[Rfam]
Rfam assigns this 265-nucleotide RNA from Nocardioides luteus to the family "raiA RNA". It scores 138 bits against the family's covariance model. The family's RNA type in Rfam is riboswitch.
RNA sequence: UCCGCCUGGGUCCGUGGUUGCGUCGCAGAGAGGUCCGCGUUGCGGACAUCCGAGCGGCAAGCCGAUGCCAGUCGCAGGCGAAACGGUCCACGUAACCCUUCGAUCCCAGAUUUUGGGGCAAGGGGAUCACGGUGCGGCUUAGAGAUAAGUCCUGCCCUUGCCCUCCCGUCAGAUACGGGAACCAGCAGGGAGAAGGUGGAGUGGCAUCAAGCCGCUAAGCCUCUGCAGGCGGUUGUGGGGUCGAAGACCAGGUCGGCCGGGCGGA
Numbered sequence: 001u002c003c004g005c006c007u008g009g010g011u012c013c014g015u016g017g018u019u020g021c022g023u024c025g026c027a028g029a030g031a032g033g034u035c036c037g038c039g040u041u042g043c044g045g046a047c048a049u050c051c052g053a054g055c056g057g058c059a060a061g062c063c064g065a066u067g068c069c070a071g072u073c074g075c076a077g078g079c080g081a082a083a084c085g086g087u088c089c090a091c092g093u094a095a096c097c098c099u100u101c102g103a104u105c106c107c108a109g110a111u112u113u114u115g116g117g118g119c120a121a122g123g124g125g126a127u128c129a130c131g132g133u134g135c136g137g138c139u140u141a142g143a144g145a146u147a148a149g150u151c152c153u154g155c156c157c158u159u160g161c162c163c164u165c166c167c168g169u170c171a172g173a174u175a176c177g178g179g180a181a182c183c184a185g186c187a188g189g190g191a192g193a194a195g196g197u198g199g200a201g202u203g204g205c206a207u208c209a210a211g212c213c214g215c216u217a218a219g220c221c222u223c224u225g226c227a228g229g230c231g232g233u234u235g236u237g238g239g240g241u242c243g244a245a246g247a248c249c250a251g252g253u254c255g256g257c258c259g260g261g262c263g264g265a
Base pairs, nucleotide, nucleotide: 001265002264003263004262005261006260007259008258009257012256013255014254015250016249017248018247019246065236066235067234068078070139071138072137073136074135075134076133087132088131092127096123097122099120101118130243151229152228153227154226155225156190157189158188159187160186194222195221196220197219201215202214203213204212205211